[Rfam]
RNA sequence: CACCUGGUCACUGAUGAUGAUCUUGUCUUAUAUAUUCUUGGAGGACUUGGACAAGAAUAUGAUUCUGUGGUUGUCUCAGUCACUACUAGGGCCGAUUUAAUUCAUUAGCCGAUCUUUAUGGCUUGCUUUUAAGUCAAGAGU
Numbered sequence: 001c002a003c004c005u006g007g008u009c010a011c012u013g014a015u016g017a018u019g020a021u022c023u024u025g026u027c028u029u030a031u032a033u034a035u036u037c038u039u040g041g042a043g044g045a046c047u048u049g050g051a052c053a054a055g056a057a058u059a060u061g062a063u064u065c066u067g068u069g070g071u072u073g074u075c076u077c078a079g080u081c082a083c084u085a086c087u088a089g090g091g092c093c094g095a096u097u098u099a100a101u102u103c104a105u106u107a108g109c110c111g112a113u114c115u116u117u118a119u120g121g122c123u124u125g126c127u128u129u130u131a132a133g134u135c136a137a138g139a140g141u
Stems, first nucleotide, its partner, number of pairs: 004140002008136001090110003094106002
RNA: Small nucleolar RNA Z247
Organism: Capsicum annuum